[Rfam]
Nucleotides: 103
Stems, first nucleotide, its partner, number of pairs: 003012001025032001034061002077101001079099002
Number, partner (000 for none) and nucleotide at each position: 001000a002000u003012g004000a005000c006000g007000g008000a009000u010000g011000c012003c013000a014000a015000g016000a017000u018000c019000c020000c021000c022000g023000a024000u025032g026000c027000g028000c029000a030000g031000g032025c033000c034061g035060g036000a037000u038000a039000c040000g041000a042000g043000a044000a045000g046000g047000g048000u049000u050000a051000c052000a053000c054000c055000a056000u057000c058000g059000c060035c061034c062000u063000g064000g065000c066000g067000g068000c069000g070000c071000a072000g073000g074000c075000c076000g077101g078000g079099g080098c081000g082000g083000a084000u085000a086000u087000g088000a089000u090000c091000a092000a093000u094000c095000u096000a097000a098080g099079c100000g101077u102000u103000g
Record summary: Rfam assigns this 103-nucleotide sequence from Roseovarius aestuarii to the family "Pyrrolysine insertion sequence mttB". Gene Ontology term of the family: pyrrolysine incorporation. On this family, see Theil Have et al., BMC Bioinformatics 2013: "Effects of using coding potential, sequence conservation and mRNA structure conservation for predicting pyrroly-sine containing genes". A search with the family's covariance model found it, with a score of 51 bits. Rfam classes the family as a cis-regulatory element.